[Rfam]
RNA: Small nucleolar RNA SNORA58
Organism: Arenaria interpres
RNA sequence: CCGCAUUCCAGUAGACCUUAUCUGGUUCUUCCUGUGGCCAGACGAGGGGGACAGUGAAUGCUACAGAAACCCGGGGUUGCUGUAGGCUGCGAUCAGCCCUGGUGUGGCUGAUCGAACUGCAAUGCUCCAACACAC
Dot-bracket structure: ..((((((.......((((.((((..............)))).))))........))))))...........((((.(..(((.........(((((.........))))).......)))..))))).......